[Rfam]
RNA: U2 spliceosomal RNA
RNA sequence: AUACCUUCUCGGCCUUUUGGCUAAGAUCAAGUGUAGUAUCUGUUCUAAUCAGUGUGAAAACUGAUUUCCACACUUCGGUGUGGUUUUUUUUUCACAUUCAUUUUUACAAAUUCCGAGAGUCCAGUUGGCUUGCCACUGACUUUUGGACUGGUUUCCGAGGGCCUAGCACUCCUCCCUUGCGAAGCCUACCUACA
Numbered sequence: 001a002u003a004c005c006u007u008c009u010c011g012g013c014c015u016u017u018u019g020g021c022u023a024a025g026a027u028c029a030a031g032u033g034u035a036g037u038a039u040c041u042g043u044u045c046u047a048a049u050c051a052g053u054g055u056g057a058a059a060a061c062u063g064a065u066u067u068c069c070a071c072a073c074u075u076c077g078g079u080g081u082g083g084u085u086u087u088u089u090u091u092u093c094a095c096a097u098u099c100a101u102u103u104u105u106a107c108a109a110a111u112u113c114c115g116a117g118a119g120u121c122c123a124g125u126u127g128g129c130u131u132g133c134c135a136c137u138g139a140c141u142u143u144u145g146g147a148c149u150g151g152u153u154u155c156c157g158a159g160g161g162c163c164u165a166g167c168a169c170u171c172c173u174c175c176c177u178u179g180c181g182a183a184g185c186c187u188a189c190c191u192a193c194a
Base pairs, nucleotide, nucleotide: 007026008025009024011022012021013020014019047066048065049064050063051062052061068083069082070081071080072079073078113146114145115144116143117142118141119140120139126135127134128133150186151185152184153183154182156179157178158177159176160175161174